[Rfam]
The record is a 72-nucleotide RNA from Escherichia coli, which matches "Nucleoid-associated noncoding RNA 4 (CssrE)" in Rfam. For this family Rfam cites "A New Noncoding RNA Arranges Bacterial Chromosome Organization" (Qian et al., MBio, 2015). Rfam's curators write: In E. coli small RNA transcribed from repeated extragenic palindromic element (REP325) called nucleoid-associated ncRNA 4 (nRNA4) collaborates HU protein in condensing the DNA. The secondary structure but not the sequence of the RNA is important in nucleoid condensation. Also identified in Shigella as CssrE. The base pairs follow the family's consensus structure, which is taken from published work. By type it is a small RNA.

RNA sequence: GGUCGGAUAAGGCGCAAGCGCCGCAUCCGACAAGCGAUGCCUGAUGUGACGUUUAACGUGUCUUAUCAGGCC
Numbered sequence: 001g002g003u004c005g006g007a008u009a010a011g012g013c014g015c016a017a018g019c020g021c022c023g024c025a026u027c028c029g030a031c032a033a034g035c036g037a038u039g040c041c042u043g044a045u046g047u048g049a050c051g052u053u054u055a056a057c058g059u060g061u062c063u064u065a066u067c068a069g070g071c072c
Stems, first nucleotide, its partner, number of pairs: 002031007011022004039071008048062005